RNA sequence: UCCAUGCUUUGUUCUGUAACGGGUUGGAUCCGACGCCUCUUGAAGGCUACUAUAGGCUCUCUUCCACAACUCCUACUCAAUACGUCCGCGACGUACAGAACGGUAACUUGUCGCCUAAAUAUCCAAGCUUGGGUAUACGGGGAAACCCACGCCCUUGGGCGGAUGGGCGGUAAGGCUGAAUUGAGAGGG
Numbered sequence: 001u002c003c004a005u006g007c008u009u010u011g012u013u014c015u016g017u018a019a020c021g022g023g024u025u026g027g028a029u030c031c032g033a034c035g036c037c038u039c040u041u042g043a044a045g046g047c048u049a050c051u052a053u054a055g056g057c058u059c060u061c062u063u064c065c066a067c068a069a070c071u072c073c074u075a076c077u078c079a080a081u082a083c084g085u086c087c088g089c090g091a092c093g094u095a096c097a098g099a100a101c102g103g104u105a106a107c108u109u110g111u112c113g114c115c116u117a118a119a120u121a122u123c124c125a126a127g128c129u130u131g132g133g134u135a136u137a138c139g140g141g142g143a144a145a146c147c148c149a150c151g152c153c154c155u156u157g158g159g160c161g162g163a164u165g166g167g168c169g170g171u172a173a174g175g176c177u178g179a180a181u182u183g184a185g186a187g188g189g
Base pairs, nucleotide, nucleotide: 011101012100013099014098015097016096017095021067023065026062027061028060030056031055071189072188073187074186076185077184078183079182080181081180082094083093084092086103087102107174108173109172110171111170112169113168114167115166116165121164122163123162124161130149131148132147133146134145152159153158
Dot-bracket structure: ..........(((((((...(.(..(((.((.......................))...)))..).)...[[[[.[[[[[[(((.[[....))))))))))]]...((((((((((....((((.....(((((..........)))))..((....)).)))))))))))))).....]]]]]]]]]]
Source information:
The record is a 189-nucleotide RNA from Anopheles sinensis, which matches "drz-agam-2-2 ribozyme" in Rfam. The literature on the family includes a 2009 paper in Science by Webb et al., "Widespread occurrence of self-cleaving ribozymes". A search with the family's covariance model found it, with a score of 170 bits. The base pairs follow the family's consensus structure, which is taken from published work. Rfam 15.1 lists 486 matches to the family in 10 species.